[Rfam]
RNA sequence: CCGCUGCGUCAUCUGGGGAGUAGCCAGCCGUUCCUGACGGAACGGGCCGUUCGUCAACAUAUUUGGCCGAGAGGCCAUGGCGGGCGGGAUGCGAGGGGUGGUUCGACGUCCUAUCCGCAUCGGGCGAGACCAAUGGCAUCAUCUUCUCCGUCCGGCCGGGCGGGAGGGGAUGGUGGCAUUGCGUCUUCACCUUCGCC
Numbered sequence: 001c002c003g004c005u006g007c008g009u010c011a012u013c014u015g016g017g018g019a020g021u022a023g024c025c026a027g028c029c030g031u032u033c034c035u036g037a038c039g040g041a042a043c044g045g046g047c048c049g050u051u052c053g054u055c056a057a058c059a060u061a062u063u064u065g066g067c068c069g070a071g072a073g074g075c076c077a078u079g080g081c082g083g084g085c086g087g088g089a090u091g092c093g094a095g096g097g098g099u100g101g102u103u104c105g106a107c108g109u110c111c112u113a114u115c116c117g118c119a120u121c122g123g124g125c126g127a128g129a130c131c132a133a134u135g136g137c138a139u140c141a142u143c144u145u146c147u148c149c150g151u152c153c154g155g156c157c158g159g160g161c162g163g164g165a166g167g168g169g170a171u172g173g174u175g176g177c178a179u180u181g182c183g184u185c186u187u188c189a190c191c192u193u194c195g196c197c
Stems, first nucleotide, its partner, number of pairs: 028045003047087010064077005091196007
RNA: Manganese Mn2+ riboswitch aptamer (yybP-ykoY)
Organism: Sphingobium indicum